[Rfam]
RNA sequence: CGUGGCGGGCGGAUGACCGCCUCGGGGCCCAAGGCCGAGCGAUCGGCUGUCGGGAACGUCCUGGGGAGGAAAGUCCGGACUCCGUAGGGCGCGAUGGUGGGUAACGCCCACCGCCCGGCCCGGCGACGGGUCGGGUAGGGAAAGUGCAACAGAAAGUAAACCGCCUCCCUGGCCUCCCGGCUGGGGAGGUAAGGGUGAAACGGUGAGGUAAGAGCUCACCAGCAGGCCGGGCGACCGGCCUGGCUCGGCAAACCCCAUCGGGAGCAAGACCAAAUAAGGGGGCAGCGUUUUUGCCGAUUCGUCGGCCGGAACCGCGGGUCGGCCCGGCCCGCCACCGACUCCCGGGUAGGUCGCUUGAGGCGCCGGGCAACCGGCGUCCUAGAGAAAUGGUCAUCCGAGGGCCACUCGGCCCCUCGACAGAAUCCGGCUUAUCGCCCGCCACGAACC
Number, nucleotide and partner (000 for none) at each position: 001c443002g442003u441004g440005g439006c438007g437008g436009g435010c434011g432012g395013a394014u393015g392016a391017c390018c389019g000020c066021c065022u064023c063024g062025g061026g060027g059028c058029c000030c000031a000032a000033g000034g000035c000036c000037g000038a000039g000040c000041g000042a000043u000044c000045g000046g000047c000048u000049g000050u000051c000052g000053g000054g000055a000056a000057c000058g028059u027060c026061c025062u024063g023064g022065g021066g020067a000068g000069g000070a000071a430072a429073g428074u000075c427076c426077g425078g424079a423080c264081u263082c262083c261084g000085u000086a000087g325088g324089g323090c322091g000092c260093g259094a258095u257096g256097g111098u110099g109100g108101g107102u000103a000104a000105c000106g000107c101108c100109c099110a098111c097112c138113g136114c135115c134116c133117g132118g131119c130120c129121c128122g127123g000124c000125g000126a000127c122128g121129g120130g119131u118132c117133g116134g115135g114136u113137a000138g112139g255140g254141a000142a000143a000144g253145u252146g249147c248148a000149a000150c000151a000152g000153a000154a000155a000156g000157u000158a000159a000160a000161c194162c193163g190164c189165c188166u187167c186168c185169c184170u183171g182172g181173c180174c179175u000176c000177c000178c000179g174180g173181c172182u171183g170184g169185g168186g167187a166188g165189g164190u163191a000192a000193g162194g161195g000196u000197g000198a000199a000200a000201c000202g220203g219204u218205g217206a216207g215208g000209u000210a000211a000212g000213a000214g000215c207216u206217c205218a204219c203220c202221a000222g244223c242224a241225g240226g239227c238228c237229g236230g235231g000232c000233g000234a000235c230236c229237g228238g227239c226240c225241u224242g223243g000244c222245u000246c000247g000248g147249c146250a000251a000252a145253c144254c140255c139256c096257a095258u094259c093260g092261g083262g082263a081264g080265c000266a000267a000268g352269a351270c350271c349272a000273a000274a000275u000276a000277a000278g343279g342280g341281g340282g339283c000284a000285g000286c000287g000288u000289u000290u000291u000292u000293g000294c000295c000296g000297a000298u000299u000300c000301g000302u000303c000304g000305g000306c000307c000308g000309g000310a000311a000312c000313c000314g000315c000316g330317g329318g328319u327320c326321g000322g090323c089324c088325c087326g320327g319328c318329c317330c316331g000332c000333c000334a000335c000336c000337g000338a000339c282340u281341c280342c279343c278344g000345g000346g000347u000348a000349g271350g270351u269352c268353g000354c000355u000356u000357g000358a000359g378360g377361c376362g375363c374364c373365g372366g371367g000368c000369a000370a000371c366372c365373g364374g363375c362376g361377u360378c359379c000380u000381a000382g000383a000384g000385a000386a000387a000388u000389g018390g017391u016392c015393a014394u013395c012396c000397g000398a000399g000400g000401g000402c000403c000404a000405c000406u000407c000408g000409g000410c000411c000412c000413c000414u000415c000416g000417a000418c000419a000420g000421a000422a000423u079424c078425c077426g076427g075428c073429u072430u071431a000432u011433c000434g010435c009436c008437c007438g006439c005440c004441a003442c002443g001444a000445a000446c000447c000
A member of the RNA family "Bacterial RNase P class A" from Tautonia sociabilis, 447 nucleotides long. The family's RNA type in Rfam is ribozyme. The match comes from Rfam's covariance-model search (264 bits).